[Rfam]
RNA: mir-184 microRNA precursor family
RNA sequence: UCACUUACCAACACUUAUCAUUCUUCGCCUUGUGUGCAUUUAAACUACUGGACGGAGAACUGAUAAGGGCUGGUUUGUCG
Numbered sequence: 001u002c003a004c005u006u007a008c009c010a011a012c013a014c015u016u017a018u019c020a021u022u023c024u025u026c027g028c029c030u031u032g033u034g035u036g037c038a039u040u041u042a043a044a045c046u047a048c049u050g051g052a053c054g055g056a057g058a059a060c061u062g063a064u065a066a067g068g069g070c071u072g073g074u075u076u077g078u079c080g
Stems, first nucleotide, its partner, number of pairs: 012069001014067007021059006029051002